Nucleotides: 087
Stems, first nucleotide, its partner, number of pairs: 005056001008053001011050002015046002017075005031042004064082005
Number, partner (000 for none) and nucleotide at each position: 001000a002000g003000g004000c005056g006000c007000a008053g009000c010000a011050g012049c013000g014000a015046c016045u017075g018074g019073c020072g021071c022000g023000a024000a025000a026000c027000u028000a029000a030000g031042g032041u033040g034039g035000a036000g037000c038000a039034c040033c041032a042031c043000c044000g045016g046015g047000a048000a049012g050011c051000g052000a053008c054000g055000a056005c057000a058000a059000g060000g061000c062000c063000g064082g065081c066080a067079c068078c069000g070000c071021g072020c073019g074018c075017c076000u077000g078068g079067g080066u081065g082064u083000c084000g085000a086000c087000u